[Rfam]
RNA sequence: GGAGUUGGCCAGACAGUCGCUGCGGACCCCACGUCGCAGAGGAAAGUCCGGGCUCCACAGGGCAGGGCGCCAGGUAACGCCUGGGCGGCGCGAGCCGACGGAAAGUGCCACAGAAAACAUACCGCCGAUGGUCCCCGCCUCCGGGCAGGGGCACAGGUAAGGUUGAAAAGGUGCGGUAAGAGCGCACCGCGCGGGUGGUAACACGCCGUGGCAAGGUAAACCCCGUCCGGAGCAAGGCCAAAUAGGGGUGCAUUGGUGUGGCCCGCAUUGCACCCGGGUAGGCUGCUAGAGGCGUGUGGUGACGCGCGCCCCAGAGGAAUGAUUGUCCACGACAGAACCCGGCUUACCGGCCGACUCCCCUC
Number, nucleotide and partner (000 for none) at each position: 001g358002g357003a356004g355005u354006u353007g352008g351009c350010c349011a000012g327013a326014c325015a324016g323017u322018c321019g000020c039021u038022g037023c036024g035025g034026a000027c000028c000029c000030c000031a000032c000033g000034u025035c024036g023037c022038a021039g020040a000041g000042g000043a000044a345045a344046g343047u000048c342049c341050g340051g339052g338053c232054u231055c230056c229057a000058c000059a000060g264061g263062g262063c261064a000065g228066g227067g226068c225069g224070c084071c083072a082073g081074g080075u000076a000077a000078c000079g000080c074081c073082u072083g071084g070085g099086c097087g096088g095089c094090g000091c000092g000093a000094g089095c088096c087097g086098a000099c085100g223101g222102a000103a000104a000105g221106u220107g217108c216109c215110a000111c000112a000113g000114a000115a000116a000117a000118c000119a000120u000121a000122c162123c161124g158125c157126c156127g000128a000129u153130g152131g000132u150133c149134c148135c000136c000137g000138c000139c000140u000141c000142c000143g000144g000145g000146c000147a000148g134149g133150g132151g000152c130153a129154c000155a000156g126157g125158u124159a000160a000161g123162g122163u000164u000165g000166a000167a000168a000169a000170g188171g187172u186173g185174c184175g183176g000177u000178a000179a000180g000181a000182g000183c175184g174185c173186a172187c171188c170189g212190c210191g209192c208193g207194g206195g204196u203197g202198g000199u000200a000201a000202c197203a196204c195205g000206c194207c193208g192209u191210g190211g000212c189213a000214a000215g109216g108217u107218a000219a000220a106221c105222c101223c100224c069225g068226u067227c066228c065229g056230g055231a054232g053233c000234a000235a000236g284237g283238c282239c281240a000241a000242a000243u000244a000245g000246g275247g274248g273249u272250g271251c270252a000253u000254u000255g269256g268257u267258g266259u265260g000261g063262c062263c061264c060265g259266c258267a257268u256269u255270g251271c250272a249273c248274c247275c246276g000277g000278g000279u000280a000281g239282g238283c237284u236285g000286c000287u000288a000289g000290a000291g310292g309293c308294g307295u306296g305297u304298g303299g000300u000301g000302a000303c298304g297305c296306g295307c294308g293309c292310c291311c000312c000313a000314g000315a000316g000317g000318a000319a000320u000321g018322a017323u016324u015325g014326u013327c012328c000329a000330c000331g000332a000333c000334a000335g000336a000337a000338c052339c051340c050341g049342g048343c046344u045345u044346a000347c000348c000349g010350g009351c008352c007353g006354a005355c004356u003357c002358c001359c000360c000361u000362c000
Annotation: The family of this 362-nucleotide sequence from Ectothiorhodospira marina is "Bacterial RNase P class A". Rfam describes the family as follows. Ribonuclease P (RNase P) is a ubiquitous endoribonuclease, found in archaea, bacteria and eukarya as well as chloroplasts and mitochondria. It is annotated as a ribozyme. NCBI's taxonomy places the organism under Bacteria, Pseudomonadota, Gammaproteobacteria, Chromatiales, Ectothiorhodospira.